[Rfam]
RNA: Small nucleolar RNA SNORA73 family
RNA sequence: CCAACAUGGGUACCCCUGGGGGGGUCAGUCUCCCCAGGGCUCUGCCCAGGUGGCCUAGGGGAACAUAGGGCUCUGCCCCUGAUGUACUGCCCUUUCCACAGCAUUGAAGAGAAAGCUGGCCUUGAGUCUGUGCCUGCUUAUUCCUACUUUUCAGAGUCCUAUGGACAAUGGCUGAGGAGACAUACCAUGCAGGAAAUAUCU
Numbered sequence: 001c002c003a004a005c006a007u008g009g010g011u012a013c014c015c016c017u018g019g020g021g022g023g024g025u026c027a028g029u030c031u032c033c034c035c036a037g038g039g040c041u042c043u044g045c046c047c048a049g050g051u052g053g054c055c056u057a058g059g060g061g062a063a064c065a066u067a068g069g070g071c072u073c074u075g076c077c078c079c080u081g082a083u084g085u086a087c088u089g090c091c092c093u094u095u096c097c098a099c100a101g102c103a104u105u106g107a108a109g110a111g112a113a114a115g116c117u118g119g120c121c122u123u124g125a126g127u128c129u130g131u132g133c134c135u136g137c138u139u140a141u142u143c144c145u146a147c148u149u150u151u152c153a154g155a156g157u158c159c160u161a162u163g164g165a166c167a168a169u170g171g172c173u174g175a176g177g178a179g180a181c182a183u184a185c186c187a188u189g190c191a192g193g194a195a196a197u198a199u200c201u
Base pairs, nucleotide, nucleotide: 002106003105004104007101008047009046010045011044012043014039015038016037018033019032020031021030050099051098052097053096059092060091061090065085066084067083068080069079133193134192135191136190137189139187147179148178149177150176151175152174156166157165158164159163